[Rfam]
RNA: Iron response element II
RNA sequence: UAAUUAUCGGAAGCAGUGCCUUCCAUAAUUG
Numbered sequence: 001u002a003a004u005u006a007u008c009g010g011a012a013g014c015a016g017u018g019c020c021u022u023c024c025a026u027a028a029u030u031g
Base pairs, nucleotide, nucleotide: 001031002030003029004028005027006026007025009024010023011022012021013020014018